[Rfam]
RNA: t44 RNA
Organism: Pseudomonas indica
RNA sequence: GGCCCUGAAGCCUUAACCCACACACGUAUCGACACGGUAUCCUGGGUGCCCGCGAGGGUUGGAUAUUGGGAUGCGUGGAGGCCUAAC
Numbered sequence: 001g002g003c004c005c006u007g008a009a010g011c012c013u014u015a016a017c018c019c020a021c022a023c024a025c026g027u028a029u030c031g032a033c034a035c036g037g038u039a040u041c042c043u044g045g046g047u048g049c050c051c052g053c054g055a056g057g058g059u060u061g062g063a064u065a066u067u068g069g070g071a072u073g074c075g076u077g078g079a080g081g082c083c084u085a086a087c
Base pairs, nucleotide, nucleotide: 023077024076025075026074027073028072029071030070035068036067037066038065039064040063041062042061048059049058050057051056